[Rfam]
RNA sequence: GGCAGUAGGUCUGCCGAAGUCGAUUACCAGAAAUUGCCUUCAAACCACCUUGGGCGGCUGUUAUUAAGAGUAAUGGUCGUGAGCGCAUGAGGAAAGUCAGCAUGAGCUGGCGAGG
Numbered sequence: 001g002g003c004a005g006u007a008g009g010u011c012u013g014c015c016g017a018a019g020u021c022g023a024u025u026a027c028c029a030g031a032a033a034u035u036g037c038c039u040u041c042a043a044a045c046c047a048c049c050u051u052g053g054g055c056g057g058c059u060g061u062u063a064u065u066a067a068g069a070g071u072a073a074u075g076g077u078c079g080u081g082a083g084c085g086c087a088u089g090a091g092g093a094a095a096g097u098c099a100g101c102a103u104g105a106g107c108u109g110g111c112g113a114g115g
Stems, first nucleotide, its partner, number of pairs: 001015005016041004021036001023034003045115002048092005053086001054080002057077003061073004096111006

The family of this 115-nucleotide RNA from Candidatus Phycorickettsia trachydisci is "Group II catalytic intron D1-D4-2".
The literature on the family includes a 2001 paper in Trends Genet by Bonen and Vogel, "The ins and outs of group II introns".
It scores 85 bits against the family's covariance model.